[Rfam]
RNA sequence: CUCUUCUCUCCAAAGCACCCUGCUGAAACCGCGCGAGCCGACCCGGCCCGGCCGGGUUCAGCUCCUGCGGCCGUGUAAGCAUGGGUACACCAGGGAAGGAGACUAAAGUUCACGGGGUCGCACACGAGGCUGGGAGGGACCGCUUUCUUAAUGUCCGCUCUCCUCAGUCUCAAGAUCCUGUGUUACACAU
Numbered sequence: 001c002u003c004u005u006c007u008c009u010c011c012a013a014a015g016c017a018c019c020c021u022g023c024u025g026a027a028a029c030c031g032c033g034c035g036a037g038c039c040g041a042c043c044c045g046g047c048c049c050g051g052c053c054g055g056g057u058u059c060a061g062c063u064c065c066u067g068c069g070g071c072c073g074u075g076u077a078a079g080c081a082u083g084g085g086u087a088c089a090c091c092a093g094g095g096a097a098g099g100a101g102a103c104u105a106a107a108g109u110u111c112a113c114g115g116g117g118u119c120g121c122a123c124a125c126g127a128g129g130c131u132g133g134g135a136g137g138g139a140c141c142g143c144u145u146u147c148u149u150a151a152u153g154u155c156c157g158c159u160c161u162c163c164u165c166a167g168u169c170u171c172a173a174g175a176u177c178c179u180g181u182g183u184u185a186c187a188c189a190u
Stems, first nucleotide, its partner, number of pairs: 018085002021081004028074002031071001035064001037062002040059002111182007132161001134159001137156003